[Rfam]
RNA sequence: GUAUGAAAUGAUGUUAUACCAUCUUUCGGGACUGACUUGUAAUGGAGAAGCUCUUCUCAUUUCACUGAUCAUAC
Numbered sequence: 001g002u003a004u005g006a007a008a009u010g011a012u013g014u015u016a017u018a019c020c021a022u023c024u025u026u027c028g029g030g031a032c033u034g035a036c037u038u039g040u041a042a043u044g045g046a047g048a049a050g051c052u053c054u055u056c057u058c059a060u061u062u063c064a065c066u067g068a069u070c071a072u073a074c
Base pairs, nucleotide, nucleotide: 001074002073003072004071005070006069